[Rfam]
RNA sequence: UGCUUUUGAGGUGAAAAAAGCGUCCUCACGCGCCGCAUGCUUCGGCAAUGGGCAAAAGAGAUGUCGGGUGUGACGCUCCGACCGAAAGCG
Numbered sequence: 001u002g003c004u005u006u007u008g009a010g011g012u013g014a015a016a017a018a019a020g021c022g023u024c025c026u027c028a029c030g031c032g033c034c035g036c037a038u039g040c041u042u043c044g045g046c047a048a049u050g051g052g053c054a055a056a057a058g059a060g061a062u063g064u065c066g067g068g069u070g071u072g073a074c075g076c077u078c079c080g081a082c083c084g085a086a087a088g089c090g
Stems, first nucleotide, its partner, number of pairs: 001090008011029004020076005031058001032053003063082005
A member of the RNA family "skipping-rope RNA" from Selenomonas sp. CM52, 90 nucleotides long.
The organism belongs to Selenomonas, within Bacteria.
Rfam classes the family as a small RNA.
It is one of the family's seed sequences.